This 52-nucleotide sequence from Castor canadensis belongs to the Rfam family "mir-1302 microRNA precursor family". Lineage of the source: Eukaryota > Sarcopterygii > Boreoeutheria > Glires > Castor. A search with the family's covariance model found it, with a score of 62 bits.
[Rfam]
RNA sequence: UUUUUAGUGUAAGUAUGUCCCAGGCAAUGUUUGGAAUAUACUUAUACUAGGA
Numbered sequence: 001u002u003u004u005u006a007g008u009g010u011a012a013g014u015a016u017g018u019c020c021c022a023g024g025c026a027a028u029g030u031u032u033g034g035a036a037u038a039u040a041c042u043u044a045u046a047c048u049a050g051g052a
Stems, first nucleotide, its partner, number of pairs: 006048007014040003018036001020034002022031001